A member of the RNA family "pan motif" from Clostridium collagenovorans, 85 nucleotides long.
By type it is a cis-regulatory element.
RNA sequence: UGGGUAGUAUCUGUAAGGAACUGCACCUUAAUUGUUUAUAGUUUUUUUAUUCAUUGCUUACAUCUAUAUAGAGUAAGACAAUAAG
Numbered sequence: 001u002g003g004g005u006a007g008u009a010u011c012u013g014u015a016a017g018g019a020a021c022u023g024c025a026c027c028u029u030a031a032u033u034g035u036u037u038a039u040a041g042u043u044u045u046u047u048u049a050u051u052c053a054u055u056g057c058u059u060a061c062a063u064c065u066a067u068a069u070a071g072a073g074u075a076a077g078a079c080a081a082u083a084a085g
Stems, first nucleotide, its partner, number of pairs: 002027002004024005010019002054081003057077005063072003